[Rfam]
RNA sequence: CAAGACGAUCCAUGGUGGAUAACAAAGAUUUUCCCAAUGUUUGGCGAAAUAUCCUUGAAUUUUAAAUAAACGACCUUAUUUAAUCUCCAGUAGCAAUUUUGACCAAUAUGGGAGGAGUUAUGCGUCUGGAUCGUCUUAC
Numbered sequence: 001c002a003a004g005a006c007g008a009u010c011c012a013u014g015g016u017g018g019a020u021a022a023c024a025a026a027g028a029u030u031u032u033c034c035c036a037a038u039g040u041u042u043g044g045c046g047a048a049a050u051a052u053c054c055u056u057g058a059a060u061u062u063u064a065a066a067u068a069a070a071c072g073a074c075c076u077u078a079u080u081u082a083a084u085c086u087c088c089a090g091u092a093g094c095a096a097u098u099u100u101g102a103c104c105a106a107u108a109u110g111g112g113a114g115g116a117g118u119u120a121u122g123c124g125u126c127u128g129g130a131u132c133g134u135c136u137u138a139c
Stems, first nucleotide, its partner, number of pairs: 002137011014126004019121001021119003026042004055066002058063001069080002072077001084115005090109003
This 139-nucleotide sequence from Sodalis ligni belongs to the Rfam family "Yersinia sRNA 155(RyfD)". By type it is a small RNA. On this family, see Righetti et al., Proc Natl Acad Sci U S A 2016: "Temperature-responsive in vitro RNA structurome of Yersinia pseudotuberculosis". Rfam describes the family as follows. The sRNA was identified by and is confirmed to have a stable secondary structure by using genome-wide structure probing at different temperatures. The function is unknown. The organism belongs to Sodalis, within Bacteria. The base pairs follow the family's consensus structure.